Arthropod 7SK RNA: a 462-nucleotide sequence from Drosophila grimshawi.
It is one of the family's seed sequences.
For this family Rfam cites "Arthropod 7SK RNA" (Gruber et al., Mol Biol Evol, 2008).
RNA sequence: GGAAGUGUCUUCUGUGAUUGUUCUCUGUGCAUUGAUCGAUAUAUAGAUAUGCCAUCUGUUUAUCAGAUCUGCUCAGUGCCGACCCUCCGUCACACUUUGUUUCCCAGUAAUUCUGCCUGGCAUUGCUGUGGCAACAGGUUUCGAUUGGCUUUCCGCUGCCUUUGCUACCGACGACGGGUCGAUUAGCAACAGACGCAUGGUUAACGCAUCUGCAUCCACCCCGCCGCCCAACCUCCGCCUCUCGCGUAUCUUAGUCUUCGAUGAUUGGGGUGCGUAGCAUAGGUAACGGGUUGGGCGGGGGGCCGCUAAUGCUUGAAGCCAACAACAGUUGCCCAAGUCAGCCAUUUUCAAAAUUUCUUGGUUAAGUAACUUUGUAGCUUAGCUUCGGAUUUUCGUAAUAAAUUUGCUGUUCAGAACACUUCCAUGUACGCGGCAUUGUCGAGCAAUUUGCCCAUUCUUUUG
Numbered sequence: 001g002g003a004a005g006u007g008u009c010u011u012c013u014g015u016g017a018u019u020g021u022u023c024u025c026u027g028u029g030c031a032u033u034g035a036u037c038g039a040u041a042u043a044u045a046g047a048u049a050u051g052c053c054a055u056c057u058g059u060u061u062a063u064c065a066g067a068u069c070u071g072c073u074c075a076g077u078g079c080c081g082a083c084c085c086u087c088c089g090u091c092a093c094a095c096u097u098u099g100u101u102u103c104c105c106a107g108u109a110a111u112u113c114u115g116c117c118u119g120g121c122a123u124u125g126c127u128g129u130g131g132c133a134a135c136a137g138g139u140u141u142c143g144a145u146u147g148g149c150u151u152u153c154c155g156c157u158g159c160c161u162u163u164g165c166u167a168c169c170g171a172c173g174a175c176g177g178g179u180c181g182a183u184u185a186g187c188a189a190c191a192g193a194c195g196c197a198u199g200g201u202u203a204a205c206g207c208a209u210c211u212g213c214a215u216c217c218a219c220c221c222c223g224c225c226g227c228c229c230a231a232c233c234u235c236c237g238c239c240u241c242u243c244g245c246g247u248a249u250c251u252u253a254g255u256c257u258u259c260g261a262u263g264a265u266u267g268g269g270g271u272g273c274g275u276a277g278c279a280u281a282g283g284u285a286a287c288g289g290g291u292u293g294g295g296c297g298g299g300g301g302g303c304c305g306c307u308a309a310u311g312c313u314u315g316a317a318g319c320c321a322a323c324a325a326c327a328g329u330u331g332c333c334c335a336a337g338u339c340a341g342c343c344a345u346u347u348u349c350a351a352a353a354u355u356u357c358u359u360g361g362u363u364a365a366g367u368a369a370c371u372u373u374g375u376a377g378c379u380u381a382g383c384u385u386c387g388g389a390u391u392u393u394c395g396u397a398a399u400a401a402a403u404u405u406g407c408u409g410u411u412c413a414g415a416a417c418a419c420u421u422c423c424a425u426g427u428a429c430g431c432g433g434c435a436u437u438g439u440c441g442a443g444c445a446a447u448u449u450g451c452c453c454a455u456u457c458u459u460u461u462g
Stems, first nucleotide, its partner, number of pairs: 001423008014093005025076003029072003034069004038064004044058004432452003435447005